Description:
Rfam assigns this 48-nucleotide sequence to the family "ssnA RNA".
[Rfam]
RNA sequence: AGAAUGAUAGCUGCAAGGAAGUGCUUGGCGCACGGGCUGACUAUCACU
Numbered sequence: 001a002g003a004a005u006g007a008u009a010g011c012u013g014c015a016a017g018g019a020a021g022u023g024c025u026u027g028g029c030g031c032a033c034g035g036g037c038u039g040a041c042u043a044u045c046a047c048u
Base pairs, nucleotide, nucleotide: 008039009038010037011036012035021033022032023031024030
Pairs were carried over by alignment from the consensus structure, which is taken from published work.